[Rfam]
RNA sequence: AUAUGCCUGGGAUGUUUGUUAUCUUUUAUAUGUCCAACCUACUUUUAUAAAUGGGGAAUCUAAUCGUUAUGCGGAUGUCGGGCCAUCUUCGAGUGGAUGACAAAAACGUAACUAAGAUGCCCACCUGCGAGUGGCAGGUUUGGACAUAUAAUAGAAACGAUAUCAUGGGCUACAU
Numbered sequence: 001a002u003a004u005g006c007c008u009g010g011g012a013u014g015u016u017u018g019u020u021a022u023c024u025u026u027u028a029u030a031u032g033u034c035c036a037a038c039c040u041a042c043u044u045u046u047a048u049a050a051a052u053g054g055g056g057a058a059u060c061u062a063a064u065c066g067u068u069a070u071g072c073g074g075a076u077g078u079c080g081g082g083c084c085a086u087c088u089u090c091g092a093g094u095g096g097a098u099g100a101c102a103a104a105a106a107c108g109u110a111a112c113u114a115a116g117a118u119g120c121c122c123a124c125c126u127g128c129g130a131g132u133g134g135c136a137g138g139u140u141u142g143g144a145c146a147u148a149u150a151a152u153a154g155a156a157a158c159g160a161u162a163u164c165a166u167g168g169g170c171u172a173c174a175u
Stems, first nucleotide, its partner, number of pairs: 005170005011164005017159003031146007038138002054122003058118004063113001066112006078100002083096004
6S / SsrS RNA: a 175-nucleotide sequence from Pelosinus sp. UFO1.
It scores 67 bits against the family's covariance model.
NCBI's taxonomy places the organism under Bacteria, Bacillati, Bacillota, Selenomonadales, Pelosinus.
Rfam describes the family as follows. E. coli 6S RNA was the first non coding RNA to be sequenced, but its function was unknown until recently.